Rfam assigns this 46-nucleotide RNA to the family "Histone 3' UTR stem-loop". The mRNAs of metazoan histone genes lack a poly-A tail. 3' end processing occurs at a site between a highly conserved stem-loop (modelled by this family) and a purine rich region around 20 nts downstream (the histone downstream element, or HDE). The stem-loop is bound by a 31 kDa stem-loop binding protein (SLBP - also termed the histone hairpin binding protein, or HBP). Together with U7 snRNA binding of the HDE, SLBP binding nucleate s the formation of the processing complex. The histone 3' UTR stem-loop is also involved in nucleocytoplasmic transport of the mRNA, and in stability regulation and translation efficiency in the cytoplasm.
[Rfam]
RNA sequence: CCAAAGGCUCUUUUCAGAGCCACCCACGCUGUCAAGGGAAGAGCCU
Numbered sequence: 001c002c003a004a005a006g007g008c009u010c011u012u013u014u015c016a017g018a019g020c021c022a023c024c025c026a027c028g029c030u031g032u033c034a035a036g037g038g039a040a041g042a043g044c045c046u
Stems, first nucleotide, its partner, number of pairs: 006021006